[Rfam]
RNA sequence: GGCGCGGCUAGGGUAGCUCCCGAAAAGCUGGCCCGCACCAGCCUGCCGCGUCGUCCUUUGCGGAAUG
Numbered sequence: 001g002g003c004g005c006g007g008c009u010a011g012g013g014u015a016g017c018u019c020c021c022g023a024a025a026a027g028c029u030g031g032c033c034c035g036c037a038c039c040a041g042c043c044u045g046c047c048g049c050g051u052c053g054u055c056c057u058u059u060g061c062g063g064a065a066u067g
Base pairs, nucleotide, nucleotide: 001052002051003050004049005048006047007046008045011021012020013019027042028041029040030039031038032067036063